[Rfam]
RNA sequence: GAAGCGCGAACCAAGACGUCGCGCAAGCGACGUAAGGCUUGGAGCUGGUGUCCGCAAGAACGACAUGCA
Dot-bracket structure: ..........(((((..(((((....)))))......)))))...((.(((.(....).))).))....